[Rfam]
RNA sequence: AUACUUACCUGGACGGGGUCAAUGGGCGAUCAAGAAGGCCCAUGGCCUAGGGUGAUGGCCUCCAUUGCACUUCGGAAGCGCAUCAGCCUAAGAUCUCCCCAACGGGGAGAGUCUACGUCAUAAUUUGUGAUAGCUGGGGCCUGCGUUCGCGCGGCCCCUGU
Numbered sequence: 001a002u003a004c005u006u007a008c009c010u011g012g013a014c015g016g017g018g019u020c021a022a023u024g025g026g027c028g029a030u031c032a033a034g035a036a037g038g039c040c041c042a043u044g045g046c047c048u049a050g051g052g053u054g055a056u057g058g059c060c061u062c063c064a065u066u067g068c069a070c071u072u073c074g075g076a077a078g079c080g081c082a083u084c085a086g087c088c089u090a091a092g093a094u095c096u097c098c099c100c101a102a103c104g105g106g107g108a109g110a111g112u113c114u115a116c117g118u119c120a121u122a123a124u125u126u127g128u129g130a131u132a133g134c135u136g137g138g139g140c141c142u143g144c145g146u147u148c149g150c151g152c153g154g155c156c157c158c159u160g161u
Base pairs, nucleotide, nucleotide: 012119013118014117015116016048017047018046019045020044021043023042024041025040026039027038049089050088051087053086055083056082057081060078061077062075063074091114092113093112094110095109096108098107099106135160136159137158138157139156142153143152144151145150
Dot-bracket structure: ...........((((((((((.(((((..........)))))))))))(((.(.(((..((((..........)).))..)))..)))).((((((.((......))))).))).))))...............(((((..((((....))))..))))).